[Rfam]
Rfam assigns this 74-nucleotide RNA from Pararge aegeria to the family "mir-2755 microRNA precursor family". The source organism's lineage runs through Eukaryota, Mandibulata, Altocrustacea, Pterygota and Pararge aegeria. Rfam links the family to the GO terms RISC complex and miRNA-mediated post-transcriptional gene silencing.

RNA sequence: CUGGUGGCACAAGGUGGCCUAGCAGCGUGUUUUCAAUAAACUUUGCACCCUGUCAGACCAUACUUGUUCUAACA
Dot-bracket structure: ....(((.(((((((((.((.((((.((((..............)))).)))).)).)))).))))).)))...